The family of this 182-nucleotide sequence is "malK-I RNA".
RNA sequence: UUGACUGCACGCCCAGCUCUCCAUAUUUCUUAGCUGUGCGUAGCUUUAACAAGGAGGAAAUGUGAAUCCCCAGGCUCGGGGUGCGGCAGUGUGGAGACCUGUCGUAACGCGGCGCGCUCCCCCGCGGGCGGCCGUGAGGACAAACGGGCGGAGGCCCCUUGUCCGGAGCCGGCAGUAUGGCA
Numbered sequence: 001u002u003g004a005c006u007g008c009a010c011g012c013c014c015a016g017c018u019c020u021c022c023a024u025a026u027u028u029c030u031u032a033g034c035u036g037u038g039c040g041u042a043g044c045u046u047u048a049a050c051a052a053g054g055a056g057g058a059a060a061u062g063u064g065a066a067u068c069c070c071c072a073g074g075c076u077c078g079g080g081g082u083g084c085g086g087c088a089g090u091g092u093g094g095a096g097a098c099c100u101g102u103c104g105u106a107a108c109g110c111g112g113c114g115c116g117c118u119c120c121c122c123c124g125c126g127g128g129c130g131g132c133c134g135u136g137a138g139g140a141c142a143a144a145c146g147g148g149c150g151g152a153g154g155c156c157c158c159u160u161g162u163c164c165g166g167a168g169c170c171g172g173c174a175g176u177a178u179g180g181c182a
Stems, first nucleotide, its partner, number of pairs: 009041004014036005068081004073170005082106008091098002109135005115130003138164006147156003
The base pairs follow the family's consensus structure, which is taken from published work.